The record is a 96-nucleotide RNA sequence from Gossypium hirsutum, which matches "Small nucleolar RNA Z157/R69/R10" in Rfam.
The organism belongs to Gossypium, within Eukaryota.
Gene Ontology terms of the family: nucleolus and RNA processing.

RNA sequence: AAGAUUGCAAUGAUGAUUCAAUUUUUUGUGGACUAGAGUUUCUGAUCUGGGUUUCCCAGUAGUUGAAGACUAACCCUUGGCUGUCUGAUUAAACUU
Numbered sequence: 001a002a003g004a005u006u007g008c009a010a011u012g013a014u015g016a017u018u019c020a021a022u023u024u025u026u027u028g029u030g031g032a033c034u035a036g037a038g039u040u041u042c043u044g045a046u047c048u049g050g051g052u053u054u055c056c057c058a059g060u061a062g063u064u065g066a067a068g069a070c071u072a073a074c075c076c077u078u079g080g081c082u083g084u085c086u087g088a089u090u091a092a093a094c095u096u
Stems, first nucleotide, its partner, number of pairs: 001096003005092003039068004046061001047059005